[Rfam]
RNA sequence: GCCCAAGUGGCGGAAUGGUAGACGCAUGGGAUUUAAGAUCCCACGCUAGCAAUAGCGUGCCGGUUCAAGUCCGGCUUUGGGCA
Numbered sequence: 001g002c003c004c005a006a007g008u009g010g011c012g013g014a015a016u017g018g019u020a021g022a023c024g025c026a027u028g029g030g031a032u033u034u035a036a037g038a039u040c041c042c043a044c045g046c047u048a049g050c051a052a053u054a055g056c057g058u059g060c061c062g063g064u065u066c067a068a069g070u071c072c073g074g075c076u077u078u079g080g081g082c083a
Stems, first nucleotide, its partner, number of pairs: 001082007010025003027043005059075005

The record is an 83-nucleotide RNA from Mycoplasmoides pneumoniae, which matches "tRNA" in Rfam. Gene Ontology term of the family: triplet codon-amino acid adaptor activity. The organism belongs to Mycoplasmoides, within Bacteria.